A member of the RNA family "SAM riboswitch aptamer (S box leader)" from Caldanaerobacter subterraneus, 94 nucleotides long. NCBI's taxonomy places the organism under Bacteria, Bacillota, Clostridia, Thermoanaerobacterales, Caldanaerobacter. Pairs were carried over by alignment from the consensus structure, which is taken from published work. Its family is annotated with regulation of gene expression in the Gene Ontology. Rfam's curators put it in the seed alignment.
RNA sequence: GGCUUAUCAAGAGAGGUUUAGGGACUGGCCCGACGAAACCCGGCAACCAGAAAUGGUGCCAAUUCCUGCAGCGGAAACGUUGAAAGAUGAGCCG
Numbered sequence: 001g002g003c004u005u006a007u008c009a010a011g012a013g014a015g016g017u018u019u020a021g022g023g024a025c026u027g028g029c030c031c032g033a034c035g036a037a038a039c040c041c042g043g044c045a046a047c048c049a050g051a052a053a054u055g056g057u058g059c060c061a062a063u064u065c066c067u068g069c070a071g072c073g074g075a076a077a078c079g080u081u082g083a084a085a086g087a088u089g090a091g092c093c094g
Stems, first nucleotide, its partner, number of pairs: 001093008013041001015040003021031003025068001027066002042060004047056002064085001069082005